[Rfam]
RNA sequence: AAGAACCAUUCCUUUACUCGGAUCGUCCGGCACGUUCCUGCCGGUGAGGGGACACAUC
Numbered sequence: 001a002a003g004a005a006c007c008a009u010u011c012c013u014u015u016a017c018u019c020g021g022a023u024c025g026u027c028c029g030g031c032a033c034g035u036u037c038c039u040g041c042c043g044g045u046g047a048g049g050g051g052a053c054a055c056a057u058c
Stems, first nucleotide, its partner, number of pairs: 010051007027044006
Rfam assigns this 58-nucleotide RNA sequence from Streptomyces paludis to the family "msiK RNA". The family's consensus secondary structure is taken from published work. Rfam classes the family as a cis-regulatory element. The match comes from Rfam's covariance-model search (50 bits).